[Rfam]
RNA: Alphaproteobacteria transfer-messenger RNA
RNA sequence: UCCCUUUUCAAACCGGAGCCGACGUCCUAUAUAGAGAGUGCCGGUUCGCCGGCUAUGGCAAUAAACGGGCGGUGAAAUAAACCCAUUGGACCCGGGGGCGGUACCCGGCGCCUCCACCAAAAACCGAUCGGUCAGACCGGUUUUUGAUGGGGGCGAAAUAGGAUCGACAAGGGCGUAAAGAUCGACUUUUUGCUCGGCAUUGUACCACCGUUAUCGGGCUAUAUUGUAGUUGCAAACGACAACUAUGCUGAAGUUCGUCUCGCUGCUUAAUCGCAGUGCGACUCUUCAAAUCAAGUCCUUGCGGGUAGCACCGUAAGGCGGGGUUCGAAGGCACCUGGCAACAGAAGCCUUCACU
Numbered sequence: 001u002c003c004c005u006u007u008u009c010a011a012a013c014c015g016g017a018g019c020c021g022a023c024g025u026c027c028u029a030u031a032u033a034g035a036g037a038g039u040g041c042c043g044g045u046u047c048g049c050c051g052g053c054u055a056u057g058g059c060a061a062u063a064a065a066c067g068g069g070c071g072g073u074g075a076a077a078u079a080a081a082c083c084c085a086u087u088g089g090a091c092c093c094g095g096g097g098g099c100g101g102u103a104c105c106c107g108g109c110g111c112c113u114c115c116a117c118c119a120a121a122a123a124c125c126g127a128u129c130g131g132u133c134a135g136a137c138c139g140g141u142u143u144u145u146g147a148u149g150g151g152g153g154c155g156a157a158a159u160a161g162g163a164u165c166g167a168c169a170a171g172g173g174c175g176u177a178a179a180g181a182u183c184g185a186c187u188u189u190u191u192g193c194u195c196g197g198c199a200u201u202g203u204a205c206c207a208c209c210g211u212u213a214u215c216g217g218g219c220u221a222u223a224u225u226g227u228a229g230u231u232g233c234a235a236a237c238g239a240c241a242a243c244u245a246u247g248c249u250g251a252a253g254u255u256c257g258u259c260u261c262g263c264u265g266c267u268u269a270a271u272c273g274c275a276g277u278g279c280g281a282c283u284c285u286u287c288a289a290a291u292c293a294a295g296u297c298c299u300u301g302c303g304g305g306u307a308g309c310a311c312c313g314u315a316a317g318g319c320g321g322g323g324u325u326c327g328a329a330g331g332c333a334c335c336u337g338g339c340a341a342c343a344g345a346a347g348c349c350u351u352c353a354c355u
Stems, first nucleotide, its partner, number of pairs: 040053005057194005067187002070184004082173003086170003092108005109155007195210003200221001202219001205217002321336004327352006